[Rfam]
RNA sequence: CAGGAGGCAGCGGUACCAUUGAUCCGUUCCCUGGAAGCUGAAUAUAUAUAUACGCAACAUUACAGCAAAAGGAAUCGGUCGAUAAACCUCUGCAUCCAG
Numbered sequence: 001c002a003g004g005a006g007g008c009a010g011c012g013g014u015a016c017c018a019u020u021g022a023u024c025c026g027u028u029c030c031c032u033g034g035a036a037g038c039u040g041a042a043u044a045u046a047u048a049u050a051u052a053c054g055c056a057a058c059a060u061u062a063c064a065g066c067a068a069a070a071g072g073a074a075u076c077g078g079u080c081g082a083u084a085a086a087c088c089u090c091u092g093c094a095u096c097c098a099g
Stems, first nucleotide, its partner, number of pairs: 003097003008092003012088003018083007027074003
Rfam assigns this 99-nucleotide RNA from Solanum lycopersicum to the family "MIR162_1 microRNA precursor family".
The base pairs follow the family's consensus structure, which was predicted with RNAalifold.
The family has 36 seed sequences and 270 matches in Rfam 15.1.
Rfam's curators put it in the seed alignment.